[Rfam]
About this RNA: The family of this 104-nucleotide RNA from Lentibacillus amyloliquefaciens is "SAM riboswitch aptamer (S box leader)". NCBI's taxonomy places the organism under Bacteria, Bacillota, Bacilli, Bacillaceae, Lentibacillus. From the family's description: The SAM riboswitch is found upstream of a number of genes which code for proteins involved in methionine or cysteine biosynthesis in Gram-positive bacteria. It scores 86 bits against the family's covariance model. Its family is annotated with regulation of gene expression in the Gene Ontology.
RNA sequence: UUCUUAUCCAGAGAGGUGGAGGGACUGGCCCUGUGAAGCCUCGGCAACAGACUCCCUGUUAGUACUGUGCCAAUUCCAGUAAGCGUCAUGCUUUAAGAUAAGAA
Number, nucleotide and partner (000 for none) at each position: 001u104002u103003c102004u101005u100006a099007u098008c097009c000010a000011g000012a000013g042014a041015g040016g039017u038018g000019g000020a000021g031022g030023g029024a000025c079026u078027g077028g076029c023030c022031c021032u000033g000034u000035g000036a000037a000038g017039c016040c015041u014042c013043g071044g070045c069046a068047a000048c067049a066050g000051a063052c062053u061054c000055c000056c000057u000058g000059u000060u000061a053062g052063u051064a000065c000066u049067g048068u046069g045070c044071c043072a000073a000074u000075u096076c028077c027078a026079g025080u000081a093082a092083g091084c090085g000086u000087c000088a000089u000090g084091c083092u082093u081094u000095a000096a075097g008098a007099u006100a005101a004102g003103a002104a001